[Rfam]
A member of the RNA family "Small nucleolar RNA Z162" from Asparagus officinalis, 89 nucleotides long. Gene Ontology terms of the family: RNA processing and nucleolus. Lineage of the source: Eukaryota > Streptophyta > Mesangiospermae > Asparagaceae > Asparagus. It scores 49 bits against the family's covariance model. The base pairs follow the family's consensus structure, which was predicted with PFOLD.

RNA sequence: GUGGGUACAAUGAGGAAAUGAAAUUAUUCAUAUAUGAGUUUCACUGAACUAUGAGCAACAGUACAAGUCCUUUUCAUUCUGAGUGCCCA
Dot-bracket structure: ...(((((.(((((........................(((....)))........................))))).....)))))..